[Rfam]
RNA sequence: CAAGUCAGCGCGCUUUGCUGAUGUGGCAACAAAUCGCGCUUACAUGGACGCGAUUUGUGUCCACGUCAGCAAAGCGCUCUGACGUGG
Numbered sequence: 001c002a003a004g005u006c007a008g009c010g011c012g013c014u015u016u017g018c019u020g021a022u023g024u025g026g027c028a029a030c031a032a033a034u035c036g037c038g039c040u041u042a043c044a045u046g047g048a049c050g051c052g053a054u055u056u057g058u059g060u061c062c063a064c065g066u067c068a069g070c071a072a073a074g075c076g077c078u079c080u081g082a083c084g085u086g087g
Stems, first nucleotide, its partner, number of pairs: 001086002004083005010077012023064004029058010040047002
Rfam assigns this 87-nucleotide RNA sequence from Gossypium davidsonii to the family "MIR7486 microRNA precursor family". NCBI's taxonomy places the organism under Eukaryota, Viridiplantae, Magnoliopsida, Malvales, Gossypium. Rfam links the family to the GO terms RISC complex and miRNA-mediated post-transcriptional gene silencing.